[Rfam]
RNA: c-di-GMP-I riboswitch aptamer
Organism: Bacillus sp. B-jedd
RNA sequence: AUAGACCCAGGGCAACUUAUUUGAAAAGAUAAGAACGCAAAGCUAAAGGGGCUAAAGCAGUGCUCUGCUAUGCCAGCCAGCUGCAGAU
Numbered sequence: 001a002u003a004g005a006c007c008c009a010g011g012g013c014a015a016c017u018u019a020u021u022u023g024a025a026a027a028g029a030u031a032a033g034a035a036c037g038c039a040a041a042g043c044u045a046a047a048g049g050g051g052c053u054a055a056a057g058c059a060g061u062g063c064u065c066u067g068c069u070a071u072g073c074c075a076g077c078c079a080g081c082u083g084c085a086g087a088u
Stems, first nucleotide, its partner, number of pairs: 012038002017032006041082004048078002050074003057068004